[Rfam]
RNA sequence: AGGCCAGAAUAGAGAGGCAGGGUCUGAUCUGCAGUCUCCAUGACAGCUGUUGAUCAGCCGUUGCCUCUCUUUUUCUCUCCG
Numbered sequence: 001a002g003g004c005c006a007g008a009a010u011a012g013a014g015a016g017g018c019a020g021g022g023u024c025u026g027a028u029c030u031g032c033a034g035u036c037u038c039c040a041u042g043a044c045a046g047c048u049g050u051u052g053a054u055c056a057g058c059c060g061u062u063g064c065c066u067c068u069c070u071u072u073u074u075c076u077c078u079c080c081g
Stems, first nucleotide, its partner, number of pairs: 008073002011070010022059001024057006032049004
The record is an 81-nucleotide sequence from Cnephaeus nilssonii, which matches "mir-574 microRNA precursor family" in Rfam.
Rfam links the family to the GO terms RISC complex and miRNA-mediated post-transcriptional gene silencing.
Clan: mir-574 microRNA precursor clan.
The literature on the family includes a 2007 paper in Cancer Res by Lui et al., "Patterns of known and novel small RNAs in human cervical cancer".
The family has 6 seed sequences and 4,084 matches in Rfam 15.1.
It scores 94 bits against the family's covariance model.